[Rfam]
RNA sequence: GUUGUGGAGCAAGUGAAUGGCCCUCGUUAUGUUGCCGGUUUAUACCAAACAACGUGCGGGGGCUUUCU
Numbered sequence: 001g002u003u004g005u006g007g008a009g010c011a012a013g014u015g016a017a018u019g020g021c022c023c024u025c026g027u028u029a030u031g032u033u034g035c036c037g038g039u040u041u042a043u044a045c046c047a048a049a050c051a052a053c054g055u056g057c058g059g060g061g062g063c064u065u066u067c068u
Stems, first nucleotide, its partner, number of pairs: 019064009030054005037045001
RNA: rdlD antitoxin